RNA sequence: GGUUGUAAUUCCGGCGAACUGGAGGCGUUCUGGACAGGGGUUCGACUCCCCUCACCUCCACCCAAGCACACCGGAACAGCAAUAAAUGUGUGUUUGGGUGGGGGUGUACUGGCUUCGACAGGGCGGGCAAAGGUAAGCAGGCAACCCGAAAGGCGACGAACGUAAUUCGCGCAAAACCACAAACGCCAACGAUGAGCGUUUCGCACUGGCCGCUUAA
Numbered sequence: 001g002g003u004u005g006u007a008a009u010u011c012c013g014g015c016g017a018a019c020u021g022g023a024g025g026c027g028u029u030c031u032g033g034a035c036a037g038g039g040g041u042u043c044g045a046c047u048c049c050c051c052u053c054a055c056c057u058c059c060a061c062c063c064a065a066g067c068a069c070a071c072c073g074g075a076a077c078a079g080c081a082a083u084a085a086a087u088g089u090g091u092g093u094u095u096g097g098g099u100g101g102g103g104g105u106g107u108a109c110u111g112g113c114u115u116c117g118a119c120a121g122g123g124c125g126g127g128c129a130a131a132g133g134u135a136a137g138c139a140g141g142c143a144a145c146c147c148g149a150a151a152g153g154c155g156a157c158g159a160a161c162g163u164a165a166u167u168c169g170c171g172c173a174a175a176a177c178c179a180c181a182a183a184c185g186c187c188a189a190c191g192a193u194g195a196g197c198g199u200u201u202c203g204c205a206c207u208g209g210c211c212g213c214u215u216a217a
Stems, first nucleotide, its partner, number of pairs: 001146005016134001026125003030121003036052005053106014147162002
RNA: permuted transfer-messenger RNA